c-di-AMP riboswitch aptamer (ydaO/yuaA leader): a 190-nucleotide RNA sequence from Paenibacillus antri. NCBI's taxonomy places the organism under Bacteria, Bacillota, Caryophanales, Paenibacillaceae, Paenibacillus. The match comes from Rfam's covariance-model search (92 bits).
RNA sequence: ACCAAUAGAUCGCUGAGUUUCCGAUAUGGAAAACGGGGGACCCGCCGCAAGCCGCGCUUCAUGCCGAACCGGUUUGCAAGGGGUGAAUCGCGGAUCGGAGCAAUCGAACGCUGCUUCGAACCAUCCGCGUAGGGCGACUCUUACCGCCCGAAUCCGACAGCUAACCUCGUAAGCGUGGAGAAGAGGAUGU
Numbered sequence: 001a002c003c004a005a006u007a008g009a010u011c012g013c014u015g016a017g018u019u020u021c022c023g024a025u026a027u028g029g030a031a032a033a034c035g036g037g038g039g040a041c042c043c044g045c046c047g048c049a050a051g052c053c054g055c056g057c058u059u060c061a062u063g064c065c066g067a068a069c070c071g072g073u074u075u076g077c078a079a080g081g082g083g084u085g086a087a088u089c090g091c092g093g094a095u096c097g098g099a100g101c102a103a104u105c106g107a108a109c110g111c112u113g114c115u116u117c118g119a120a121c122c123a124u125c126c127g128c129g130u131a132g133g134g135c136g137a138c139u140c141u142u143a144c145c146g147c148c149c150g151a152a153u154c155c156g157a158c159a160g161c162u163a164a165c166c167u168c169g170u171a172a173g174c175g176u177g178g179a180g181a182a183g184a185g186g187a188u189g190u
Stems, first nucleotide, its partner, number of pairs: 011175004018032005033170006043080001081155003089129007132149004